RNA sequence: AGAUAAGUAUUCAGAAUCAGGCCGGGGUGGUCACACCCCGCGUACUCGGUCGUACAUCCAGCCGGUUGCCUGAUUCCUUGCAUUGAAGCGAUGUACGGAGUUUAUAGAGC
Numbered sequence: 001a002g003a004u005a006a007g008u009a010u011u012c013a014g015a016a017u018c019a020g021g022c023c024g025g026g027g028u029g030g031u032c033a034c035a036c037c038c039c040g041c042g043u044a045c046u047c048g049g050u051c052g053u054a055c056a057u058c059c060a061g062c063c064g065g066u067u068g069c070c071u072g073a074u075u076c077c078u079u080g081c082a083u084u085g086a087a088g089c090g091a092u093g094u095a096c097g098g099a100g101u102u103u104a105u106a107g108a109g110c
Stems, first nucleotide, its partner, number of pairs: 009101004014076009023040006044066002047064003079095001081093003
RNA: iscR stability element